[Rfam]
RNA sequence: ACCAAGCCCAAGUCAACUGAGCCAACCCAUUGACCCAUUAAUCAACCUGGCAAUGGGUCAAUGAGUUGGCCCAGUUGACUUGGGCCUGGU
Numbered sequence: 001a002c003c004a005a006g007c008c009c010a011a012g013u014c015a016a017c018u019g020a021g022c023c024a025a026c027c028c029a030u031u032g033a034c035c036c037a038u039u040a041a042u043c044a045a046c047c048u049g050g051c052a053a054u055g056g057g058u059c060a061a062u063g064a065g066u067u068g069g070c071c072c073a074g075u076u077g078a079c080u081u082g083g084g085c086c087u088g089g090u
Stems, first nucleotide, its partner, number of pairs: 001090004006085001008083002012079006019071001021070004026065001028063001032059008
RNA: mir-571 microRNA precursor family
Organism: Camphora micrantha